[Rfam]
Annotation: The family of this 216-nucleotide part of an RNA is "Bacterial large subunit ribosomal RNA". The match comes from Rfam's covariance-model search (1517 bits).
RNA sequence: AAACGAUUCAGAAUGUUUAACUAGUACGAGAGGACCGUUAAGCAUCAUUCCCUUAUGUACCUGUUGUUUUAAAGCAUCGCAGGGUAGUAACAAUGAUAUGAAUAAUCGCUGAAAGCAUCUCAAGCGAGAAGUCCUUCUGAAGAAUUUCAAAAACAAGAGAAAGAAAAUCUCUUAAAUAGGUUGUAUGUGCUAAGCUAAACAAUACUAAUUUUUUUA
Numbered sequence: 001a002a003a004c005g006a007u008u009c010a011g012a013a014u015g016u017u018u019a020a021c022u023a024g025u026a027c028g029a030g031a032g033g034a035c036c037g038u039u040a041a042g043c044a045u046c047a048u049u050c051c052c053u054u055a056u057g058u059a060c061c062u063g064u065u066g067u068u069u070u071a072a073a074g075c076a077u078c079g080c081a082g083g084g085u086a087g088u089a090a091c092a093a094u095g096a097u098a099u100g101a102a103u104a105a106u107c108g109c110u111g112a113a114a115g116c117a118u119c120u121c122a123a124g125c126g127a128g129a130a131g132u133c134c135u136u137c138u139g140a141a142g143a144a145u146u147u148c149a150a151a152a153a154c155a156a157g158a159g160a161a162a163g164a165a166a167a168u169c170u171c172u173u174a175a176a177u178a179g180g181u182u183g184u185a186u187g188u189g190c191u192a193a194g195c196u197a198a199a200c201a202a203u204a205c206u207a208a209u210u211u212u213u214u215u216a
Stems, first nucleotide, its partner, number of pairs: 001147002009139004015043007044097006053090003060083005065076004100133002106127005152214002155211001156172005177207003180203005187195001